[Rfam]
RNA sequence: GGACGGUGACGAGUAUAUCAUGGUCUCGUUCGUCGUAAUUGGCGAAUUUAUUAGCCUUGCAGACCAUUCUGAUUUAUCACCACCAAUAUUCUGAGUCC
Numbered sequence: 001g002g003a004c005g006g007u008g009a010c011g012a013g014u015a016u017a018u019c020a021u022g023g024u025c026u027c028g029u030u031c032g033u034c035g036u037a038a039u040u041g042g043c044g045a046a047u048u049u050a051u052u053a054g055c056c057u058u059g060c061a062g063a064c065c066a067u068u069c070u071g072a073u074u075u076a077u078c079a080c081c082a083c084c085a086a087u088a089u090u091c092u093g094a095g096u097c098c
Stems, first nucleotide, its partner, number of pairs: 001098004045058002047053001